[Rfam]
RNA sequence: GGACGGGCCCCGCCGAACCAUGCGACCGGACGGUCGCACGGGCCGGGGAACCACCGCAGUACUGGGGUGAAUCACGCCCGCGUUCCUGGACGCGGGCGGGUAGGGCACUUCCGGCCCGAACCCGUCAGCUAACUCGGUAGGCGGUCGCGAGGAACAGG
Numbered sequence: 001g002g003a004c005g006g007g008c009c010c011c012g013c014c015g016a017a018c019c020a021u022g023c024g025a026c027c028g029g030a031c032g033g034u035c036g037c038a039c040g041g042g043c044c045g046g047g048g049a050a051c052c053a054c055c056g057c058a059g060u061a062c063u064g065g066g067g068u069g070a071a072u073c074a075c076g077c078c079c080g081c082g083u084u085c086c087u088g089g090a091c092g093c094g095g096g097c098g099g100g101u102a103g104g105g106c107a108c109u110u111c112c113g114g115c116c117c118g119a120a121c122c123c124g125u126c127a128g129c130u131a132a133c134u135c136g137g138u139a140g141g142c143g144g145u146c147g148c149g150a151g152g153a154a155c156a157g158g
Stems, first nucleotide, its partner, number of pairs: 011143004018041002042138006052064002065123003073100001075098010103117004

Shown here is a 158-nucleotide sequence from Blastococcus mobilis, a member of the family "c-di-AMP riboswitch aptamer (ydaO/yuaA leader)". Rfam's curators write: This family represents a conserved RNA structure found upstream of the ydaO and yuaA genes in Bacillus subtilis and related genes in other bacteria. Its family is annotated with cyclic-di-AMP binding and regulation of gene expression in the Gene Ontology. The organism belongs to Blastococcus, within Bacteria.